[Rfam]
This 355-nucleotide RNA from Pararhodobacter marinus belongs to the Rfam family "Alphaproteobacteria transfer-messenger RNA". The literature on the family includes a 2002 paper in Nucleic Acids Res by Williams, "The tmRNA Website: invasion by an intron".
RNA sequence: CCCCUUGAGCCGCGCCGAAUGCCGCCCUAUAUAGAGCGUGUUCCCGGCAACGGGGACUAUGGACAUAAACGCGCUCGUAAUAAGCGGUUCGGACCCGGGGGCGGUACCCGGCGGCUCCACCAGACUUCCCUCAUUGGGGGCGAAUGGGGCCGAAACAGGAUCGACGAACGUCUAAAGGGGUUUGCUUUGUCCCGGUGAGGUACCACCGUUAUCGGUCCGAAACGUACAGUUGCCAAUGACAACCGUGCUCCGGUGGCCGUCGCUGCGUAAGCAGUUGACCUAAACCGAUCUUAAGCCCUUGCGCUUAGCCGCGUAAGGCGGGGUUCGCAGGUACCUGGCAACAGAAACCUGCACU
Numbered sequence: 001c002c003c004c005u006u007g008a009g010c011c012g013c014g015c016c017g018a019a020u021g022c023c024g025c026c027c028u029a030u031a032u033a034g035a036g037c038g039u040g041u042u043c044c045c046g047g048c049a050a051c052g053g054g055g056a057c058u059a060u061g062g063a064c065a066u067a068a069a070c071g072c073g074c075u076c077g078u079a080a081u082a083a084g085c086g087g088u089u090c091g092g093a094c095c096c097g098g099g100g101g102c103g104g105u106a107c108c109c110g111g112c113g114g115c116u117c118c119a120c121c122a123g124a125c126u127u128c129c130c131u132c133a134u135u136g137g138g139g140g141c142g143a144a145u146g147g148g149g150c151c152g153a154a155a156c157a158g159g160a161u162c163g164a165c166g167a168a169c170g171u172c173u174a175a176a177g178g179g180g181u182u183u184g185c186u187u188u189g190u191c192c193c194g195g196u197g198a199g200g201u202a203c204c205a206c207c208g209u210u211a212u213c214g215g216u217c218c219g220a221a222a223c224g225u226a227c228a229g230u231u232g233c234c235a236a237u238g239a240c241a242a243c244c245g246u247g248c249u250c251c252g253g254u255g256g257c258c259g260u261c262g263c264u265g266c267g268u269a270a271g272c273a274g275u276u277g278a279c280c281u282a283a284a285c286c287g288a289u290c291u292u293a294a295g296c297c298c299u300u301g302c303g304c305u306u307a308g309c310c311g312c313g314u315a316a317g318g319c320g321g322g323g324u325u326c327g328c329a330g331g332u333a334c335c336u337g338g339c340a341a342c343a344g345a346a347a348c349c350u351g352c353a354c355u
Stems, first nucleotide, its partner, number of pairs: 040057007061192005071185002073181004085170002089167003095111005112152007193208004199218002202216003321336004327352006
It scores 298 bits against the family's covariance model.
Its Rfam clan is "tRNA clan".
Rfam describes the family as follows. Bacterial tmRNA, also known as 10Sa RNA or SsrA, is named for its dual tRNA and mRNA-like properties. Its role is to liberate the mRNA from a stalled ribosome. To accomplish this part of the tmRNA is used as a reading frame that ends in a translation stop signal.